This 77-nucleotide sequence from Petromyzon marinus belongs to the Rfam family "mir-1 microRNA precursor family". It is one of the family's seed sequences. On this family, see Ambros, Cell 2001: "microRNAs: tiny regulators with great potential".
RNA sequence: GCUGAGGCAAUGUGCCUCUUUACGUCCCCAUACGCAGCUCUGAGUCUAUGGAAUGUAAAGAAGUACGUUGCUUCUGC
Numbered sequence: 001g002c003u004g005a006g007g008c009a010a011u012g013u014g015c016c017u018c019u020u021u022a023c024g025u026c027c028c029c030a031u032a033c034g035c036a037g038c039u040c041u042g043a044g045u046c047u048a049u050g051g052a053a054u055g056u057a058a059a060g061a062a063g064u065a066c067g068u069u070g071c072u073u074c075u076g077c
Base pairs, nucleotide, nucleotide: 007071008070009069010068011067012066013065014064015063017061018060019059020058021057022056023055024054025053028051029050030049031048032047
Rfam describes the family as follows. This family represents the microRNA (miRNA) mir-1 family. miRNAs are transcribed as ~70nt precursors (modelled here) and subsequently processed by the Dicer enzyme to give a ~22nt product. In this case the mature sequence comes from the 3' arm of the precursor. The extents of the hairpin precursors are not generally known and are estimated based on hairpin prediction. The products are thought to have regulatory roles through complementarity to mRNA. The involvement of Dicer in miRNA processing suggests a relationship with the phenomenon of RNA interference. miRNAs are numbered based on the sequence of the mature RNA. This family also contains the mir-206 from human, which appears to be related to mir-1. Gene Ontology terms of the family: miRNA-mediated post-transcriptional gene silencing and RISC complex.